The record is a 335-nucleotide RNA sequence from Halanaerobium salsuginis, which matches "Bacterial RNase P class A" in Rfam.

RNA sequence: UAAGUUAAUCAGAUGGUUGCAUCUCUUUUGAGAUGAGGAAAGUCCGAGCUCCACAGGAUAGGAUGCCGGGUAACGCCCGGUGGAGGUAACUCCCAGGCUAGUGCCACAGAAAUAUACCGCCUUUUAAUUAAGGUAAGGGUGAAAAGGUAAGGUAAGAGCUUACCGGGUUUCAGGUAACUGGAAUGCCAGGUAAACCCCAUCUGGAGUAAGUCCAAAUAGGGAGAUAUAAGGGUGAUCCGCCUUUCUCCGGGUUAGGACGCUGGAGUAAAUAGGCAACUGUUUACCUAGAUAGAUGACCAUCAAGACAGAACUCGGCUUAUAGAUUGACUUAUUUU
Numbered sequence: 001u002a003a004g005u006u007a008a009u010c011a012g013a014u015g016g017u018u019g020c021a022u023c024u025c026u027u028u029u030g031a032g033a034u035g036a037g038g039a040a041a042g043u044c045c046g047a048g049c050u051c052c053a054c055a056g057g058a059u060a061g062g063a064u065g066c067c068g069g070g071u072a073a074c075g076c077c078c079g080g081u082g083g084a085g086g087u088a089a090c091u092c093c094c095a096g097g098c099u100a101g102u103g104c105c106a107c108a109g110a111a112a113u114a115u116a117c118c119g120c121c122u123u124u125u126a127a128u129u130a131a132g133g134u135a136a137g138g139g140u141g142a143a144a145a146g147g148u149a150a151g152g153u154a155a156g157a158g159c160u161u162a163c164c165g166g167g168u169u170u171c172a173g174g175u176a177a178c179u180g181g182a183a184u185g186c187c188a189g190g191u192a193a194a195c196c197c198c199a200u201c202u203g204g205a206g207u208a209a210g211u212c213c214a215a216a217u218a219g220g221g222a223g224a225u226a227u228a229a230g231g232g233u234g235a236u237c238c239g240c241c242u243u244u245c246u247c248c249g250g251g252u253u254a255g256g257a258c259g260c261u262g263g264a265g266u267a268a269a270u271a272g273g274c275a276a277c278u279g280u281u282u283a284c285c286u287a288g289a290u291a292g293a294u295g296a297c298c299a300u301c302a303a304g305a306c307a308g309a310a311c312u313c314g315g316c317u318u319a320u321a322g323a324u325u326g327a328c329u330u331a332u333u334u335u
Stems, first nucleotide, its partner, number of pairs: 001331010011320001012301007020035006040318003044315005049206004056238004061202005066080005081095001082093004096197002101195002103191003117138002119134005146164006165186001167184007210258004220248005229243005265284008
The match comes from Rfam's covariance-model search (298 bits). The family's RNA type in Rfam is ribozyme. Its Rfam clan is "RNaseP clan". Gene Ontology terms of the family: tRNA processing, ribonuclease P activity and dimeric ribonuclease P complex.